[Rfam]
RNA sequence: GGCCUGUUUUUCUCGCCGUUUUCGCCCUAUAUUGGGGGUGCCGGUUCGCCGGCUAUGGAAAUAAAUUGCCGUCGCAAUAAACCAUUCGGACCCGGGGGCAGUACCCGGCGCCUCCACCAAAAUCCGUCAGUUGGGCAUGAUGUUCAGCGGGUUUCGGCGGGGGCGAACCAGGAUCGACGAGGGCGUAAAGGGCGUGUUUUUUCCCGGUAUGGUUCCGCCGUUAUCGGGCUAUGCAAUAGUUGCAAACGACAACUAUGCUCCGGUUGCUCAGGCUGCGUAACGCAGUUUGAAAGACCAAGUCUAAAGUCCUGGUGGGUUAAGCUCCGCUAGGCGGGGUUCGGAGGCACCUGGCAACAGAAGCCUCCACU
Numbered sequence: 001g002g003c004c005u006g007u008u009u010u011u012c013u014c015g016c017c018g019u020u021u022u023c024g025c026c027c028u029a030u031a032u033u034g035g036g037g038g039u040g041c042c043g044g045u046u047c048g049c050c051g052g053c054u055a056u057g058g059a060a061a062u063a064a065a066u067u068g069c070c071g072u073c074g075c076a077a078u079a080a081a082c083c084a085u086u087c088g089g090a091c092c093c094g095g096g097g098g099c100a101g102u103a104c105c106c107g108g109c110g111c112c113u114c115c116a117c118c119a120a121a122a123u124c125c126g127u128c129a130g131u132u133g134g135g136c137a138u139g140a141u142g143u144u145c146a147g148c149g150g151g152u153u154u155c156g157g158c159g160g161g162g163g164c165g166a167a168c169c170a171g172g173a174u175c176g177a178c179g180a181g182g183g184c185g186u187a188a189a190g191g192g193c194g195u196g197u198u199u200u201u202u203c204c205c206g207g208u209a210u211g212g213u214u215c216c217g218c219c220g221u222u223a224u225c226g227g228g229c230u231a232u233g234c235a236a237u238a239g240u241u242g243c244a245a246a247c248g249a250c251a252a253c254u255a256u257g258c259u260c261c262g263g264u265u266g267c268u269c270a271g272g273c274u275g276c277g278u279a280a281c282g283c284a285g286u287u288u289g290a291a292a293g294a295c296c297a298a299g300u301c302u303a304a305a306g307u308c309c310u311g312g313u314g315g316g317u318u319a320a321g322c323u324c325c326g327c328u329a330g331g332c333g334g335g336g337u338u339c340g341g342a343g344g345c346a347c348c349u350g351g352c353a354a355c356a357g358a359a360g361c362c363u364c365c366a367c368u
Stems, first nucleotide, its partner, number of pairs: 040053005057204005068197002070194004082183002086180003092108005109165007205220004210231003214228003334349004340365006
The family of this 368-nucleotide RNA sequence from Afipia sp. GAS231 is "Alphaproteobacteria transfer-messenger RNA". Pairs were carried over by alignment from the consensus structure, which is taken from published work. Its Rfam clan is "tRNA clan". A search with the family's covariance model found it, with a score of 309 bits. Taxonomically the source falls in Afipia (Bacteria, Pseudomonadati, Pseudomonadota, Hyphomicrobiales).